[Rfam]
RNA: Eukaryotic large subunit ribosomal RNA, nucleotides 3974 to 4507
Organism: Tychaedon coryphoeus
RNA sequence: GAAGACCCUGUUGAGCUUGACUCUAGUCUGGCGCUGUGAAGAGACAUGAGAGGUGUAGAAUAAGUGGGAGGCCGGGUGUGCGCUCGGCAGUGUGGGGUGACCCGCCCCUCGGUGUCCCGGCCGUUGGUGAAGUACCACUACUCUGAUAGUUUUUUCACUUUCCCCGUGAGGCGGGGAGGUGAGCCCCGAGGCGGGCUCUCGCUUCUGGCGCCAAGCGGCCAGCGCGUGCUGGCCACGAGCCGCUCCAGUAACAGCGGCAGGUGGGGAGUUUGACUGGGGCGGUACACCUGUCAAAGCGUAACGCAGGUGUCCUAAGGCGAGCUCAGGGAGGACGGAAACCUCCCGUGGAGCAGAAGGGCAAAAGCUCGCUUGAUCUUGAUUUUCAGUACGAAUACAGACCGUGAAAGCAGGUCCUCACUAUCCUUCUGGCUUUUUGGGUUUUAAGCAGGAUGUGUCAGAAAAGUUACCACAGGGAUAACUGGCUUGUGGUGGCCAAGCGUUCAUAGCAACAUUGCUUUUUGAUCCUUUGAUGUC
Numbered sequence: 001g002a003a004g005a006c007c008c009u010g011u012u013g014a015g016c017u018u019g020a021c022u023c024u025a026g027u028c029u030g031g032c033g034c035u036g037u038g039a040a041g042a043g044a045c046a047u048g049a050g051a052g053g054u055g056u057a058g059a060a061u062a063a064g065u066g067g068g069a070g071g072c073c074g075g076g077u078g079u080g081c082g083c084u085c086g087g088c089a090g091u092g093u094g095g096g097g098u099g100a101c102c103c104g105c106c107c108c109u110c111g112g113u114g115u116c117c118c119g120g121c122c123g124u125u126g127g128u129g130a131a132g133u134a135c136c137a138c139u140a141c142u143c144u145g146a147u148a149g150u151u152u153u154u155u156c157a158c159u160u161u162c163c164c165c166g167u168g169a170g171g172c173g174g175g176g177a178g179g180u181g182a183g184c185c186c187c188g189a190g191g192c193g194g195g196c197u198c199u200c201g202c203u204u205c206u207g208g209c210g211c212c213a214a215g216c217g218g219c220c221a222g223c224g225c226g227u228g229c230u231g232g233c234c235a236c237g238a239g240c241c242g243c244u245c246c247a248g249u250a251a252c253a254g255c256g257g258c259a260g261g262u263g264g265g266g267a268g269u270u271u272g273a274c275u276g277g278g279g280c281g282g283u284a285c286a287c288c289u290g291u292c293a294a295a296g297c298g299u300a301a302c303g304c305a306g307g308u309g310u311c312c313u314a315a316g317g318c319g320a321g322c323u324c325a326g327g328g329a330g331g332a333c334g335g336a337a338a339c340c341u342c343c344c345g346u347g348g349a350g351c352a353g354a355a356g357g358g359c360a361a362a363a364g365c366u367c368g369c370u371u372g373a374u375c376u377u378g379a380u381u382u383u384c385a386g387u388a389c390g391a392a393u394a395c396a397g398a399c400c401g402u403g404a405a406a407g408c409a410g411g412u413c414c415u416c417a418c419u420a421u422c423c424u425u426c427u428g429g430c431u432u433u434u435u436g437g438g439u440u441u442u443a444a445g446c447a448g449g450a451u452g453u454g455u456c457a458g459a460a461a462a463g464u465u466a467c468c469a470c471a472g473g474g475a476u477a478a479c480u481g482g483c484u485u486g487u488g489g490u491g492g493c494c495a496a497g498c499g500u501u502c503a504u505a506g507c508a509a510c511a512u513u514g515c516u517u518u519u520u521g522a523u524c525c526u527u528u529g530a531u532g533u534c
Stems, first nucleotide, its partner, number of pairs: 007473004012469002014465005020269004027261004032256002036158010046147002049144004063139005070122007163248001166245001172242003181198005215236001217234006272285001273283003286308006312411001317369006323349002326344006350359002374398003379393004401408002424450005431445003482523001484521001486520001488516005497507002